[Rfam]
Nucleotides: 093
Base pairs, nucleotide, nucleotide: 001093002092003091004090005089006088007087008086011026012025013024014023015022016021028044029043030042031041032040047067048066049065050064070084071083072082073081
Number, partner (000 for none) and nucleotide at each position: 001093g002092g003091g004090g005089a006088u007087g008086g009000u010000u011026g012025g013024g014023u015022c016021c017000c018000g019000g020000u021016g022015g023014g024013u025012c026011c027000c028044u029043c030042g031041a032040u033000c034000u035000u036000c037000a038000a039000a040032a041031u042030c043029g044028g045000u046000g047067g048066c049065g050064g051000g052000c053000u054000g055000c056000u057000c058000u059000g060000c061000a062000g063000g064050c065049c066048g067047c068000g069000g070084u071083g072082g073081g074000u075000u076000c077000g078000a079000c080000u081073c082072c083071c084070a085000u086008c087007c088006a089005u090004u091003c092002c093001c